[Rfam]
RNA sequence: UAUAGGCUAAGAACGCAACGUCCUGUUGCAACGCCUGUA
Numbered sequence: 001u002a003u004a005g006g007c008u009a010a011g012a013a014c015g016c017a018a019c020g021u022c023c024u025g026u027u028g029c030a031a032c033g034c035c036u037g038u039a
Stems, first nucleotide, its partner, number of pairs: 001039007015029005
A member of the RNA family "Bacillaceae-1 RNA" from Bacilli bacterium VT-13-104, 39 nucleotides long. The family's RNA type in Rfam is small RNA. It scores 38 bits against the family's covariance model. The organism belongs to Bacilli, within Bacteria.